Background: This 93-nucleotide sequence from Nyctereutes procyonoides belongs to the Rfam family "mir-8799 microRNA precursor family".

[Rfam]
RNA sequence: AGGGAGCACAGGGAUGCUGGGCUGUGUCCCCUGGCGCCCUGGGCUCCCGGGCCUGCGCUGCUGGAAUCGCGCUCCCGGGGCCCGCAGCCCGCU
Numbered sequence: 001a002g003g004g005a006g007c008a009c010a011g012g013g014a015u016g017c018u019g020g021g022c023u024g025u026g027u028c029c030c031c032u033g034g035c036g037c038c039c040u041g042g043g044c045u046c047c048c049g050g051g052c053c054u055g056c057g058c059u060g061c062u063g064g065a066a067u068c069g070c071g072c073u074c075c076c077g078g079g080g081c082c083c084g085c086a087g088c089c090c091g092c093u
Stems, first nucleotide, its partner, number of pairs: 002090003009084001011083003017077001019075003023071004027065002031063001032060006041053001043052003
Dot-bracket structure: .(((....(.(((...(.(((.((((((..(((((((...(.(((....)))).))))))..)))..)))).))).)...))))...)))...
It scores 49 bits against the family's covariance model. Its Rfam clan is "mir-8791 microRNA precursor clan".